[Rfam]
RNA sequence: UCGGCUGGGCCAGGGGCUGUAACACAGGACAUGGGUCCCGCUUGUCCUCCCCGCUCGUGUCUUGUGUUGCAGCCAGUGGUCUCGC
Numbered sequence: 001u002c003g004g005c006u007g008g009g010c011c012a013g014g015g016g017c018u019g020u021a022a023c024a025c026a027g028g029a030c031a032u033g034g035g036u037c038c039c040g041c042u043u044g045u046c047c048u049c050c051c052c053g054c055u056c057g058u059g060u061c062u063u064g065u066g067u068u069g070c071a072g073c074c075a076g077u078g079g080u081c082u083c084g085c
Base pairs, nucleotide, nucleotide: 011078012077015074016073017072018071020069021068022067023066024065025064026063027062028061029060030059032057033056034055035054